RNA sequence: UUGGGGUGAGGUAGUAGGUUGUAUGGUUUUGGGCUCUGCCCCGCUCUGCGGUAACUAUACAAUCUACUGUCUUUCCUGA
Numbered sequence: 001u002u003g004g005g006g007u008g009a010g011g012u013a014g015u016a017g018g019u020u021g022u023a024u025g026g027u028u029u030u031g032g033g034c035u036c037u038g039c040c041c042c043g044c045u046c047u048g049c050g051g052u053a054a055c056u057a058u059a060c061a062a063u064c065u066a067c068u069g070u071c072u073u074u075c076c077u078g079a
Base pairs, nucleotide, nucleotide: 001079002078003077004076005075006074008073009072010071011070012069013068014067015066016065017064018063019062020061021060022059023058024057025056026055027054031041032040033039034038
A member of the RNA family "let-7 microRNA precursor family" from Mus musculus, 79 nucleotides long. The literature on the family includes a 2001 paper in Nat Rev Genet by Rougvie, "Control of developmental timing in animals". The source organism's lineage runs through Eukaryota, Chordata, Teleostomi, Mus and Mus. Its family is annotated with miRNA-mediated post-transcriptional gene silencing and RISC complex in the Gene Ontology.